[Rfam]
RNA sequence: AGCACUAUAUUUAAACCUGUGGAUGGGAAUUUUCCCCAUUCUUGGUACGCUGUAGUGCAAAAGAAUUCCUGGCUCUAUCUCUUGCAAAGCUUACUUAUACUAUACUGCUGUGGCUAUAUGGAGUAAAGGACAUGA
Numbered sequence: 001a002g003c004a005c006u007a008u009a010u011u012u013a014a015a016c017c018u019g020u021g022g023a024u025g026g027g028a029a030u031u032u033u034c035c036c037c038a039u040u041c042u043u044g045g046u047a048c049g050c051u052g053u054a055g056u057g058c059a060a061a062a063g064a065a066u067u068c069c070u071g072g073c074u075c076u077a078u079c080u081c082u083u084g085c086a087a088a089g090c091u092u093a094c095u096u097a098u099a100c101u102a103u104a105c106u107g108c109u110g111u112g113g114c115u116a117u118a119u120g121g122a123g124u125a126a127a128g129g130a131c132a133u134g135a
Stems, first nucleotide, its partner, number of pairs: 002058008015046003021041007067130004072124005080118001084114002088109003